[Rfam]
RNA sequence: CUGAUAAACUUAGCGCCAUGCUCUCUUUUGGGACGGAAAAAGUAAGAGACAACGAGGUCAGAAAGUAAUCGAAAUCUUCGGCGGAUGCUUUCUCGCGGUUCUUUGGACGUGUGAUAUAUUGAACAAACCAUUAGGUGACUAAUGAACAAAAUCAAUAUAACCAGGGAAG
Numbered sequence: 001c002u003g004a005u006a007a008a009c010u011u012a013g014c015g016c017c018a019u020g021c022u023c024u025c026u027u028u029u030g031g032g033a034c035g036g037a038a039a040a041a042g043u044a045a046g047a048g049a050c051a052a053c054g055a056g057g058u059c060a061g062a063a064a065g066u067a068a069u070c071g072a073a074a075u076c077u078u079c080g081g082c083g084g085a086u087g088c089u090u091u092c093u094c095g096c097g098g099u100u101c102u103u104u105g106g107a108c109g110u111g112u113g114a115u116a117u118a119u120u121g122a123a124c125a126a127a128c129c130a131u132u133a134g135g136u137g138a139c140u141a142a143u144g145a146a147c148a149a150a151a152u153c154a155a156u157a158u159a160a161c162c163a164g165g166g167a168a169g
Base pairs, nucleotide, nucleotide: 022049023048024047025046026045027044029041060093061092062091063090064089069081070080071079072078094111095110096109097108099106115159116158117157118156119155120154121153129144130143131142132141133140134139